[Rfam]
RNA: mir-46/mir-47/mir-281 microRNA precursor family
RNA sequence: AGUUUGUAUGACCGAAGAGAGCAGUCUGUUGACAGUCGAUGCCUAGCGUACUGUCAUGGAGUCGCUCUCUUCAGACGUACAGAC
Numbered sequence: 001a002g003u004u005u006g007u008a009u010g011a012c013c014g015a016a017g018a019g020a021g022c023a024g025u026c027u028g029u030u031g032a033c034a035g036u037c038g039a040u041g042c043c044u045a046g047c048g049u050a051c052u053g054u055c056a057u058g059g060a061g062u063c064g065c066u067c068u069c070u071u072c073a074g075a076c077g078u079a080c081a082g083a084c
Stems, first nucleotide, its partner, number of pairs: 014072005020066003025060004031055003035051002